[Rfam]
RNA sequence: UGGUGUUUGUCUCUUGAUGACACACGUGCCAAUAUCGGUACGUGGGAUAUGGAAAUCAAGACAUACCCAACACGAAAUUUUUGUUCUUGUGGGGCUGUUUUUUGGCAUUGAACCGAAGACGCCCCC
Numbered sequence: 001u002g003g004u005g006u007u008u009g010u011c012u013c014u015u016g017a018u019g020a021c022a023c024a025c026g027u028g029c030c031a032a033u034a035u036c037g038g039u040a041c042g043u044g045g046g047a048u049a050u051g052g053a054a055a056u057c058a059a060g061a062c063a064u065a066c067c068c069a070a071c072a073c074g075a076a077a078u079u080u081u082u083g084u085u086c087u088u089g090u091g092g093g094g095c096u097g098u099u100u101u102u103u104g105g106c107a108u109u110g111a112a113c114c115g116a117a118g119a120c121g122c123c124c125c126c
Base pairs, nucleotide, nucleotide: 003073004072005071006070007069008022009021010020011019023044024043025042026041027040028039029038030037045068046067048065049064050063051062092124093123094122095121097120098119099118100117101116103115104114105113106110
Shown here is a 126-nucleotide RNA from Sitophilus oryzae, a member of the family "U11 spliceosomal RNA".
Rfam links the family to the GO terms mRNA 5'-splice site recognition, U11 snRNP and pre-mRNA 5'-splice site binding.
Taxonomically the source falls in Sitophilus (Eukaryota, Eumetazoa, Allotriocarida, Coleoptera).
Pairs were carried over by alignment from the consensus structure, which is taken from published work.
The literature on the family includes a 1988 paper in Proc Natl Acad Sci U S A by Montzka and Steitz, "Additional low-abundance human small nuclear ribonucleoproteins: U11, U12, etc".